[Rfam]
RNA sequence: CUCCCUUCUAUUGUGUAUCCUCGAUUAAUGCAACCUCAGAUGCUAUA
Numbered sequence: 001c002u003c004c005c006u007u008c009u010a011u012u013g014u015g016u017a018u019c020c021u022c023g024a025u026u027a028a029u030g031c032a033a034c035c036u037c038a039g040a041u042g043c044u045a046u047a
Stems, first nucleotide, its partner, number of pairs: 010025004032044001034042001